RNA: chrB-b RNA
RNA sequence: GCGGGUUUUUUGCAGACUCCCGCCGUCGUGCUGUCCCGCCGUGGUGCCGUCUCGGUGACCCCGGUGCGCGCGAUAAGACGGUGUCCCGUCCAAGUUCUGC
Numbered sequence: 001g002c003g004g005g006u007u008u009u010u011u012g013c014a015g016a017c018u019c020c021c022g023c024c025g026u027c028g029u030g031c032u033g034u035c036c037c038g039c040c041g042u043g044g045u046g047c048c049g050u051c052u053c054g055g056u057g058a059c060c061c062c063g064g065u066g067c068g069c070g071c072g073a074u075a076a077g078a079c080g081g082u083g084u085c086c087c088g089u090c091c092a093a094g095u096u097c098u099g100c
Base pairs, nucleotide, nucleotide: 001023002022003021004020005019012100013099014098015097016096077090078089079088080087081086